This 91-nucleotide RNA from Solanum commersonii belongs to the Rfam family "MIR8024 microRNA precursor family". The family has 2 seed sequences and 661 matches in Rfam 15.1.
[Rfam]
RNA sequence: UUUAAGAAUCCGACUUGAAGACUUCAACUUGCAGACUUGAAGAAUUUGAAGACUUCAACUUGCAGAAUUAAAGACUUUGAAGACUUUAAUU
Numbered sequence: 001u002u003u004a005a006g007a008a009u010c011c012g013a014c015u016u017g018a019a020g021a022c023u024u025c026a027a028c029u030u031g032c033a034g035a036c037u038u039g040a041a042g043a044a045u046u047u048g049a050a051g052a053c054u055u056c057a058a059c060u061u062g063c064a065g066a067a068u069u070a071a072a073g074a075c076u077u078u079g080a081a082g083a084c085u086u087u088a089a090u091u
Stems, first nucleotide, its partner, number of pairs: 001089002004086003015080005022073003026069001030064004037058006